[Rfam]
RNA sequence: UCAGGUAACCCUGAUAACAGGGUCCAGUUUUAAACCCCGCUUUUAUGUGGGGUUUUUUAUUACCCUAAUACAUGCUUUAGCGUGUAGAACUAACAUCAAGCGAAUUGAUAGUUCGCUUUUAAACUGGGCUUUUUAGCCCUUUUUUU
Numbered sequence: 001u002c003a004g005g006u007a008a009c010c011c012u013g014a015u016a017a018c019a020g021g022g023u024c025c026a027g028u029u030u031u032a033a034a035c036c037c038c039g040c041u042u043u044u045a046u047g048u049g050g051g052g053u054u055u056u057u058u059a060u061u062a063c064c065c066u067a068a069u070a071c072a073u074g075c076u077u078u079a080g081c082g083u084g085u086a087g088a089a090c091u092a093a094c095a096u097c098a099a100g101c102g103a104a105u106u107g108a109u110a111g112u113u114c115g116c117u118u119u120u121a122a123a124c125u126g127g128g129c130u131u132u133u134u135a136g137c138c139c140u141u142u143u144u145u146u
Stems, first nucleotide, its partner, number of pairs: 032055008126139004

A member of the RNA family "Gammaprotebacteria rimP leader" from Alteromonadales bacterium alter-6D02, 146 nucleotides long. The family's consensus secondary structure is taken from published work. Rfam links the family to the GO term regulation of gene expression. By type it is a cis-regulatory leader. For this family Rfam cites "Premature terminator analysis sheds light on a hidden world of bacterial transcriptional attenuation" (Naville and Gautheret, Genome Biol, 2010).